[Rfam]
RNA sequence: CUUGCAUGAAAGACAUGGGUAGUGAGAUGUUCAUAUUUUUUGUCUCACUACCUUGUCUUUCAUGUAAUU
Dot-bracket structure: .......((((((((.(((.(((((((((...........))))))))).)))))))))))........
Record summary:
The family of this 69-nucleotide sequence from Diabrotica balteata is "mir-71 microRNA precursor family". The match comes from Rfam's covariance-model search (69 bits).